The family of this 48-nucleotide RNA sequence from Streptomyces griseoaurantiacus is "raiA-hairpin RNA".
The base pairs follow the family's consensus structure, which is taken from published work.
Rfam's curators put it in the seed alignment.
RNA sequence: CACCGAGUCCGAGGUUCCGGUGCCCACCGGAAUCUGGUGCAAGAGGGA
Numbered sequence: 001c002a003c004c005g006a007g008u009c010c011g012a013g014g015u016u017c018c019g020g021u022g023c024c025c026a027c028c029g030g031a032a033u034c035u036g037g038u039g040c041a042a043g044a045g046g047g048a
Stems, first nucleotide, its partner, number of pairs: 013034008